The family of this 68-nucleotide RNA sequence from Flavobacterium soyangense is "DUF805 RNA". Lineage of the source: Bacteria > Pseudomonadati > Bacteroidota > Flavobacteriaceae > Flavobacterium. Rfam classes the family as a cis-regulatory element.
RNA sequence: UGAAAGUGGAGUCCAGAAACCACUAAAAUAAACGGGGAAGCUGAAAAUCCUUAAUAGUAUGGAAAAUU
Numbered sequence: 001u002g003a004a005a006g007u008g009g010a011g012u013c014c015a016g017a018a019a020c021c022a023c024u025a026a027a028a029u030a031a032a033c034g035g036g037g038a039a040g041c042u043g044a045a046a047a048u049c050c051u052u053a054a055u056a057g058u059a060u061g062g063a064a065a066a067u068u
Base pairs, nucleotide, nucleotide: 006023007022008021009020036050037049038048041062042061
Dot-bracket structure: .....((((..........))))............(((..[[.....)))..........]]......